Shown here is a 557-nucleotide part of an RNA from Paragonimus westermani, a member of the family "Eukaryotic small subunit ribosomal RNA". Taxonomically the source falls in Paragonimus (Eukaryota, Lophotrochozoa, Rhabditophora, Trematoda). Rfam links the family to the GO terms ribosome and structural constituent of ribosome. Clan: SSU clan. The family's consensus secondary structure is taken from published work. A search with the family's covariance model found it, with a score of 1365 bits. Rfam 15.1 lists 75,755 matches to the family in 2,556 species.
RNA sequence: GGGAAGUGUGGCUGCAAAGUUGAAACUUAAAGGAAUUGACGGAAGGGCACCACCAAGAGUGGAGCAUACGGCGCAAUUCGACUCAACAUGGGAAAGCUAACCCGGCUCGGACACUGUGAGGAUUGACAGAUUGAAGGCUCUUUCUUGAUUCGGUGGUUGGUGAUGCAUGGCCGUUCUUAGUUGGUGAAGCGAUUUGUCUGGUUAAUUCCGAUAACGAACGAGAUUCUGGCCUGCUAAAUAUUAUGCCUGUCAUCUGUGCCCAUGUGGGUGGCGGUGCUCGCUUGUGUUGUUCGCCGGCUGGUACUGCGCAGGUGUUUACUUCUUAGAGGGCAAGCGGCGUGACAGUCACACGAAAAUGAGCAAUAACCGGUCUGUGAUGCCCUCAGAUGUCCGGGGCCGCACCUGCGCUACAAUGAUGGUUUUAGAAAGUCUGGCAACCUGGCAAACUGAGUCAUCACAGUCGUGACUGGGAUCGGGGCUUGCAAUUGUUUCCCGUGAACGAGGAAUUCCUGGUAAGUGCAAAUCAUAAGCUUGCGUUCCUGUACUUUGUACACAAU
Numbered sequence: 001g002g003g004a005a006g007u008g009u010g011g012c013u014g015c016a017a018a019g020u021u022g023a024a025a026c027u028u029a030a031a032g033g034a035a036u037u038g039a040c041g042g043a044a045g046g047g048c049a050c051c052a053c054c055a056a057g058a059g060u061g062g063a064g065c066a067u068a069c070g071g072c073g074c075a076a077u078u079c080g081a082c083u084c085a086a087c088a089u090g091g092g093a094a095a096g097c098u099a100a101c102c103c104g105g106c107u108c109g110g111a112c113a114c115u116g117u118g119a120g121g122a123u124u125g126a127c128a129g130a131u132u133g134a135a136g137g138c139u140c141u142u143u144c145u146u147g148a149u150u151c152g153g154u155g156g157u158u159g160g161u162g163a164u165g166c167a168u169g170g171c172c173g174u175u176c177u178u179a180g181u182u183g184g185u186g187a188a189g190c191g192a193u194u195u196g197u198c199u200g201g202u203u204a205a206u207u208c209c210g211a212u213a214a215c216g217a218a219c220g221a222g223a224u225u226c227u228g229g230c231c232u233g234c235u236a237a238a239u240a241u242u243a244u245g246c247c248u249g250u251c252a253u254c255u256g257u258g259c260c261c262a263u264g265u266g267g268g269u270g271g272c273g274g275u276g277c278u279c280g281c282u283u284g285u286g287u288u289g290u291u292c293g294c295c296g297g298c299u300g301g302u303a304c305u306g307c308g309c310a311g312g313u314g315u316u317u318a319c320u321u322c323u324u325a326g327a328g329g330g331c332a333a334g335c336g337g338c339g340u341g342a343c344a345g346u347c348a349c350a351c352g353a354a355a356a357u358g359a360g361c362a363a364u365a366a367c368c369g370g371u372c373u374g375u376g377a378u379g380c381c382c383u384c385a386g387a388u389g390u391c392c393g394g395g396g397c398c399g400c401a402c403c404u405g406c407g408c409u410a411c412a413a414u415g416a417u418g419g420u421u422u423u424a425g426a427a428a429g430u431c432u433g434g435c436a437a438c439c440u441g442g443c444a445a446a447c448u449g450a451g452u453c454a455u456c457a458c459a460g461u462c463g464u465g466a467c468u469g470g471g472a473u474c475g476g477g478g479c480u481u482g483c484a485a486u487u488g489u490u491u492c493c494c495g496u497g498a499a500c501g502a503g504g505a506a507u508u509c510c511u512g513g514u515a516a517g518u519g520c521a522a523a524u525c526a527u528a529a530g531c532u533u534g535c536g537u538u539c540c541u542g543u544a545c546u547u548u549g550u551a552c553a554c555a556a557u
Base pairs, nucleotide, nucleotide: 001028002027003026010021011020012019013018037553038552039550040549041548043547044546045545047543048542049541052537053536057509058508059507060506061411063409064408065407067405068404070402071400072399077092078091079090080089101395102394103393104392105391107389112155113154114153115152116151125144126143128141129140130139159383160382162381164379165378168377169375170371171370172369173367174366175365180219181218182217184215185214186195187194188193199210200209201208225359226358230329231328232327234326235325236324237323240320242318243317331352334349336347337346338345415462416461417460419458420457428448429447438442469500474495475494476493477492478491520534521533522532